Rfam assigns this 104-nucleotide sequence from Methylobacterium radiodurans to the family "Glycine riboswitch aptamer". It scores 58 bits against the family's covariance model. NCBI's taxonomy places the organism under Bacteria, Pseudomonadati, Alphaproteobacteria, Hyphomicrobiales, Methylobacterium.
[Rfam]
RNA sequence: GUUGGACAAUCUGGAGAGAGGCGCCGCAGGGCGUCCACCGAAGGAGAAACCCCGAGCCGCGAGCCCGGGGGAAGCUCUCAGGUAACCGCGACAGAUGGGGGCAG
Number, nucleotide and partner (000 for none) at each position: 001g000002u000003u000004g000005g000006a000007c098008a000009a096010u095011c094012u093013g092014g000015a000016g000017a000018g000019a000020g035021g034022c033023g032024c000025c000026g000027c000028a000029g000030g000031g000032c023033g022034u021035c020036c000037a083038c082039c081040g079041a078042a000043g000044g077045a076046g075047a000048a000049a000050c070051c069052c068053c067054g066055a000056g000057c000058c000059g000060c000061g000062a000063g000064c000065c000066c054067g053068g052069g051070g050071g000072a000073a000074g000075c046076u045077c044078u041079c040080a000081g039082g038083u037084a000085a000086c000087c000088g000089c000090g000091a000092c013093a012094g011095a010096u009097g000098g007099g000100g000101g000102c000103a000104g000